[Rfam]
RNA: S4-Bacteroidia ribosomal protein leader
RNA sequence: GAUUGCAAUUCCUUUCUGUUAAUCGCGGCUG
Numbered sequence: 001g002a003u004u005g006c007a008a009u010u011c012c013u014u015u016c017u018g019u020u021a022a023u024c025g026c027g028g029c030u031g
Stems, first nucleotide, its partner, number of pairs: 001024005006018001